[Rfam]
The family of this 113-nucleotide RNA sequence from Gloeobacter violaceus is "Guanidine-I riboswitch aptamer".
RNA sequence: AAAACUGGCUUCUAGGGUUCCGGUCCCGCUCCUGUGGUGGGACGGCUGGUCCGAGAGAAGCAGCCGGUCCGACAGCAGGGCCGGUCACACGGCGGGAGAAAAGCCCGGGAGAG
Numbered sequence: 001a002a003a004a005c006u007g008g009c010u011u012c013u014a015g016g017g018u019u020c021c022g023g024u025c026c027c028g029c030u031c032c033u034g035u036g037g038u039g040g041g042a043c044g045g046c047u048g049g050u051c052c053g054a055g056a057g058a059a060g061c062a063g064c065c066g067g068u069c070c071g072a073c074a075g076c077a078g079g080g081c082c083g084g085u086c087a088c089a090c091g092g093c094g095g096g097a098g099a100a101a102a103g104c105c106c107g108g109g110a111g112a113g
Stems, first nucleotide, its partner, number of pairs: 008061005015052002020049002022046001023043008063085007088108001090111001094106003

Taxonomically the source falls in Gloeobacter violaceus (Bacteria, Cyanobacteriota, Gloeobacterales, Gloeobacter).